[Rfam]
RNA: Enterobacterial sRNA STnc540
RNA sequence: UCAGAUCCAGGCAUAACAUCCAUCAGGGUGUAUUGCGGCAGAUACGCUGCCAUCCCGAAAGUAGAUCAGCGGGAUGACAGCGUAUUUGUCAGCCUGAAAGAUGACCCGUAUAACUAAAAAGGCCGCUCUGCGGCCUUUUUUCUUUCAAUAACCGAUU
Numbered sequence: 001u002c003a004g005a006u007c008c009a010g011g012c013a014u015a016a017c018a019u020c021c022a023u024c025a026g027g028g029u030g031u032a033u034u035g036c037g038g039c040a041g042a043u044a045c046g047c048u049g050c051c052a053u054c055c056c057g058a059a060a061g062u063a064g065a066u067c068a069g070c071g072g073g074a075u076g077a078c079a080g081c082g083u084a085u086u087u088g089u090c091a092g093c094c095u096g097a098a099a100g101a102u103g104a105c106c107c108g109u110a111u112a113a114c115u116a117a118a119a120a121g122g123c124c125g126c127u128c129u130g131c132g133g134c135c136u137u138u139u140u141u142c143u144u145u146c147a148a149u150a151a152c153c154g155a156u157u
Stems, first nucleotide, its partner, number of pairs: 009095004016031006037090013051076007096146006116140011